[Rfam]
RNA sequence: GGAUCGAGUGGUCUUCGGUGGGACGAAGGCCGAGAAUGGAUCUGAUUUCAAUGCCGUCACUGACAAGACAUGCCGGAGCCCGACGGUAUGCGCU
Numbered sequence: 001g002g003a004u005c006g007a008g009u010g011g012u013c014u015u016c017g018g019u020g021g022g023a024c025g026a027a028g029g030c031c032g033a034g035a036a037u038g039g040a041u042c043u044g045a046u047u048u049c050a051a052u053g054c055c056g057u058c059a060c061u062g063a064c065a066a067g068a069c070a071u072g073c074c075g076g077a078g079c080c081c082g083a084c085g086g087u088a089u090g091c092g093c094u
Stems, first nucleotide, its partner, number of pairs: 001043005010031008065094001069090001071088005
A member of the RNA family "Rhodo-rpoB RNA" from Thalassococcus halodurans, 94 nucleotides long. Taxonomically the source falls in Thalassococcus (Bacteria, Alphaproteobacteria, Rhodobacterales, Roseobacteraceae). The base pairs follow the family's consensus structure, which is taken from published work. By type it is a cis-regulatory element. The match comes from Rfam's covariance-model search (56 bits).